[Rfam]
RNA sequence: UGUCACCUGUGUGUUUUCUCUGCAUGCCCUCUUCAUUGUUCUGCUGAAGACUGGUCUCUUCAUGUGUGAGGGAGGAGGUUGGGUAUUGAGGGAAAACAGGGGGC
Numbered sequence: 001u002g003u004c005a006c007c008u009g010u011g012u013g014u015u016u017u018c019u020c021u022g023c024a025u026g027c028c029c030u031c032u033u034c035a036u037u038g039u040u041c042u043g044c045u046g047a048a049g050a051c052u053g054g055u056c057u058c059u060u061c062a063u064g065u066g067u068g069a070g071g072g073a074g075g076a077g078g079u080u081g082g083g084u085a086u087u088g089a090g091g092g093a094a095a096a097c098a099g100g101g102g103g104c
Stems, first nucleotide, its partner, number of pairs: 002104003006101003012098010024086006031078004036073002039070003042066003045062006
This 104-nucleotide RNA sequence from Pan troglodytes belongs to the Rfam family "mir-6133 microRNA precursor family". The sequence is in the family's curated seed alignment.